[Rfam]
RNA sequence: UGAAUAGCUAAAGCGCCAGAACCCUUCCCGGAGUGCGGGAACGAAUAAGGCCCGGGGAAAGCGGGCGUGCCAUGGCCUGCCUGCCUGCAUGGCACGGGCCUUUAAGGGUUGACGAGGAGGGGGUUAAUCGAGUUUUUCGGCGGGUGCCCCCCGGUCCGGCCGGACCGUUAGCGGCAUUACAAAACCACCGGGCAACCGGUGGGACAAAAGUGCCAGCGGCCUGAA
Numbered sequence: 001u002g003a004a005u006a007g008c009u010a011a012a013g014c015g016c017c018a019g020a021a022c023c024c025u026u027c028c029c030g031g032a033g034u035g036c037g038g039g040a041a042c043g044a045a046u047a048a049g050g051c052c053c054g055g056g057g058a059a060a061g062c063g064g065g066c067g068u069g070c071c072a073u074g075g076c077c078u079g080c081c082u083g084c085c086u087g088c089a090u091g092g093c094a095c096g097g098g099c100c101u102u103u104a105a106g107g108g109u110u111g112a113c114g115a116g117g118a119g120g121g122g123g124u125u126a127a128u129c130g131a132g133u134u135u136u137u138c139g140g141c142g143g144g145u146g147c148c149c150c151c152c153g154g155u156c157c158g159g160c161c162g163g164a165c166c167g168u169u170a171g172c173g174g175c176a177u178u179a180c181a182a183a184a185c186c187a188c189c190g191g192g193c194a195a196c197c198g199g200u201g202g203g204a205c206a207a208a209a210g211u212g213c214c215a216g217c218g219g220c221c222u223g224a225a
Stems, first nucleotide, its partner, number of pairs: 020110007119151005128140004152167006173214006185202007
RNA: glmS glucosamine-6-phosphate activated ribozyme aptamer
Organism: Pelotomaculum thermopropionicum